The record is a 356-nucleotide RNA from Aquimonas voraii, which matches "transfer-messenger RNA" in Rfam. Clan: tRNA clan. Rfam classes the family as a non-coding RNA gene. The organism belongs to Aquimonas, within Bacteria. Pairs were carried over by alignment from the consensus structure, which is taken from published work.

RNA sequence: GGGGGCGACCAGGCUUCGACGGGGGUGUGAAACCGGAGGUGCGUGUCGAGGGGGCAGCUUUCCUCGUUAAUCCAGCGGCAAACAAGCUAGUUGCGAACGACGACAACUACGCACUCGCCGCCUAAAUAGGCGAGUCCGACUCCCAUCGGUGCCUGUAACGGUGGAUCAGUCGGUCAUAUUUACGGGAUCGUCCGAAGGCUGCUGUCUGACAGCCAAGGCCUAAAACUUCCAGACUGGUUCCGGGGUGCUCUUCGUGCGCUGUGUUGCCCCGGAACGAGACCUGACAACGCACUACACACGUAGGGCCAAAGAUGUAAUGCCUUCGGACGGGGGUUCGAUUCCCCCCGCCUCCACCA
Numbered sequence: 001g002g003g004g005g006c007g008a009c010c011a012g013g014c015u016u017c018g019a020c021g022g023g024g025g026u027g028u029g030a031a032a033c034c035g036g037a038g039g040u041g042c043g044u045g046u047c048g049a050g051g052g053g054g055c056a057g058c059u060u061u062c063c064u065c066g067u068u069a070a071u072c073c074a075g076c077g078g079c080a081a082a083c084a085a086g087c088u089a090g091u092u093g094c095g096a097a098c099g100a101c102g103a104c105a106a107c108u109a110c111g112c113a114c115u116c117g118c119c120g121c122c123u124a125a126a127u128a129g130g131c132g133a134g135u136c137c138g139a140c141u142c143c144c145a146u147c148g149g150u151g152c153c154u155g156u157a158a159c160g161g162u163g164g165a166u167c168a169g170u171c172g173g174u175c176a177u178a179u180u181u182a183c184g185g186g187a188u189c190g191u192c193c194g195a196a197g198g199c200u201g202c203u204g205u206c207u208g209a210c211a212g213c214c215a216a217g218g219c220c221u222a223a224a225a226c227u228u229c230c231a232g233a234c235u236g237g238u239u240c241c242g243g244g245g246u247g248c249u250c251u252u253c254g255u256g257c258g259c260u261g262u263g264u265u266g267c268c269c270c271g272g273a274a275c276g277a278g279a280c281c282u283g284a285c286a287a288c289g290c291a292c293u294a295c296a297c298a299c300g301u302a303g304g305g306c307c308a309a310a311g312a313u314g315u316a317a318u319g320c321c322u323u324c325g326g327a328c329g330g331g332g333g334u335u336c337g338a339u340u341c342c343c344c345c346c347g348c349c350u351c352c353a354c355c356a
Stems, first nucleotide, its partner, number of pairs: 001352007020325009032313001034311001038307003042300005047066005054079002057076003113135007136173006143164006152186006192218002204234005237275010248263001250261001254292003258288001260286001329345005